Shown here is a 139-nucleotide RNA sequence from Clostridiales bacterium PH28_bin88, a member of the family "Ribosomal protein L10 leader". The organism belongs to Eubacteriales, within Bacteria. The family's RNA type in Rfam is cis-regulatory leader.

[Rfam]
RNA sequence: CAGAUAACGUAAUUAUGACUGUAGACAGCAGGUGUGCUAGUGCACUUAAUGCCCGCGGGCGCCCGCCGAGGUCUGGCCGAAAUGCUCUGUAACGGAGAAGGCCCUCGUGUGUCUACACGGGGGCCUUUUUGCCGGCUGU
Numbered sequence: 001c002a003g004a005u006a007a008c009g010u011a012a013u014u015a016u017g018a019c020u021g022u023a024g025a026c027a028g029c030a031g032g033u034g035u036g037c038u039a040g041u042g043c044a045c046u047u048a049a050u051g052c053c054c055g056c057g058g059g060c061g062c063c064c065g066c067c068g069a070g071g072u073c074u075g076g077c078c079g080a081a082a083u084g085c086u087c088u089g090u091a092a093c094g095g096a097g098a099a100g101g102c103c104c105u106c107g108u109g110u111g112u113c114u115a116c117a118c119g120g121g122g123g124c125c126u127u128u129u130u131g132c133c134g135g136c137u138g139u
Stems, first nucleotide, its partner, number of pairs: 028066002031063003034045003101124010
The base pairs follow the family's consensus structure, which was predicted with CMfinder.